[Rfam]
The record is a 198-nucleotide RNA sequence from Paenibacillus nuruki, which matches "Lysine riboswitch aptamer" in Rfam.
RNA sequence: CGAUGAGGUAGAGGUCGCAACUAUAAUGAGUCUAUUUGGAGAAAGCGUUAGAGCCGCUGUUGAUCCCAAAUAAAAAGGUAUCGUUGCCGAAGUAUACGUAACGCUCUUCUGUUACUUAUGCUGGGACUGUGUCCGAAAGGAACAGGACUGUCACAGUGAACCAUCUUCGGAUGUGUCCUGUGUUGAGCUAUCUUUACA
Numbered sequence: 001c002g003a004u005g006a007g008g009u010a011g012a013g014g015u016c017g018c019a020a021c022u023a024u025a026a027u028g029a030g031u032c033u034a035u036u037u038g039g040a041g042a043a044a045g046c047g048u049u050a051g052a053g054c055c056g057c058u059g060u061u062g063a064u065c066c067c068a069a070a071u072a073a074a075a076a077g078g079u080a081u082c083g084u085u086g087c088c089g090a091a092g093u094a095u096a097c098g099u100a101a102c103g104c105u106c107u108u109c110u111g112u113u114a115c116u117u118a119u120g121c122u123g124g125g126a127c128u129g130u131g132u133c134c135g136a137a138a139g140g141a142a143c144a145g146g147a148c149u150g151u152c153a154c155a156g157u158g159a160a161c162c163a164u165c166u167u168c169g170g171a172u173g174u175g176u177c178c179u180g181u182g183u184u185g186a187g188c189u190a191u192c193u194u195u196a197c198a
Stems, first nucleotide, its partner, number of pairs: 006193006017087005023081003033072007040064001091122006098115005123149002127145004132140002152182005